[Rfam]
RNA sequence: GAAUUCAAUGAUGAUUAUUUGUUUUCCCUAUUGGUUUGAUUGCCUGAAUGAUGGCUUUUUGUAUUAGCUCUAUCUGAGAAUUC
Dot-bracket structure: .((((................................(...(((........)))..)....................)))).

Shown here is an 83-nucleotide RNA sequence from Lupinus albus, a member of the family "Small nucleolar RNA Z102/R77". Rfam classes the family as a C/D-box small nucleolar RNA. The family's consensus secondary structure was predicted with PFOLD. Its Rfam clan is "SNORD44 clan". The organism belongs to Lupinus, within Eukaryota. Gene Ontology terms of the family: RNA processing and nucleolus. A search with the family's covariance model found it, with a score of 71 bits.